Shown here is an 84-nucleotide RNA, a member of the family "Small nucleolar RNA R38".
RNA sequence: CUGAGUCCAUGAUGAUUUCAAGUUAUCCCUGUCUGAAGGCAAAGAAAGGCCUUUCUGUGUGGAAUUUGAAUAUCUGAAACUCAG
Number, nucleotide and partner (000 for none) at each position: 001c084002u083003g082004a081005g080006u079007c000008c000009a000010u000011g000012a000013u000014g000015a000016u000017u000018u000019c000020a000021a000022g000023u000024u000025a000026u000027c000028c000029c000030u000031g000032u000033c000034u000035g000036a000037a000038g000039g000040c000041a000042a000043a000044g000045a000046a000047a000048g000049g000050c000051c000052u000053u000054u000055c000056u000057g000058u000059g000060u000061g000062g000063a000064a000065u000066u000067u000068g000069a000070a000071u000072a000073u000074c000075u000076g000077a000078a000079a006080c005081u004082c003083a002084g001
Rfam describes the family as follows. snoR38 is a C/D box small nucleolar RNA conserved across yeast, human, Arabidopsis and rice. It is encoded in the intron of elongation factor-1 gamma in both pombe and cerevisiae. snoR38 guides the methylation of 2'-O-ribose sites in 28S rRNA. Rfam's curators put it in the seed alignment. A reference for the family is Chen et al. (2003), "The high diversity of snoRNAs in plants: identification and comparative study of 120 snoRNA genes from Oryza sativa", Nucleic Acids Res. Rfam classes the family as a C/D-box small nucleolar RNA.